[Rfam]
RNA sequence: AGAGGCCCUCCACGGCUGGGGUGGAACACUUGCCUCAUUGCCGCAGCAACAAAGCAAGCAUUCCACCAGGCCGCUCACGCUGCCUGC
Numbered sequence: 001a002g003a004g005g006c007c008c009u010c011c012a013c014g015g016c017u018g019g020g021g022u023g024g025a026a027c028a029c030u031u032g033c034c035u036c037a038u039u040g041c042c043g044c045a046g047c048a049a050c051a052a053a054g055c056a057a058g059c060a061u062u063c064c065a066c067c068a069g070g071c072c073g074c075u076c077a078c079g080c081u082g083c084c085u086g087c
Base pairs, nucleotide, nucleotide: 004084005083006082013073014072015071016070017069020067021066022065023064024063025062026061029058030057031056032055033054038049039048040047041046
The family of this 87-nucleotide RNA from Myotis lucifugus is "mir-9195 microRNA precursor family".
The family has 3 seed sequences and 438 matches in Rfam 15.1.
NCBI's taxonomy places the organism under Eukaryota, Chordata, Gnathostomata, Chiroptera, Myotis.